[Rfam]
RNA: FMN riboswitch aptamer (RFN element)
Organism: Brachybacterium faecium
RNA sequence: GACGUGCUCCGGGGUCGGUGAAAGUCCGAGCCGGCGGUGACAGUCCGCGACCCGCGCAUGCGGUGGAGCCGGUGGAAUUCCGGCGCCGACAGUACAGCCUGGAUGAGAGGCGCACGUC
Numbered sequence: 001g002a003c004g005u006g007c008u009c010c011g012g013g014g015u016c017g018g019u020g021a022a023a024g025u026c027c028g029a030g031c032c033g034g035c036g037g038u039g040a041c042a043g044u045c046c047g048c049g050a051c052c053c054g055c056g057c058a059u060g061c062g063g064u065g066g067a068g069c070c071g072g073u074g075g076a077a078u079u080c081c082g083g084c085g086c087c088g089a090c091a092g093u094a095c096a097g098c099c100u101g102g103a104u105g106a107g108a109g110g111c112g113c114a115c116g117u118c
Stems, first nucleotide, its partner, number of pairs: 003116005009110002016028003030098002032088002034048004043086002052063002068084005090101003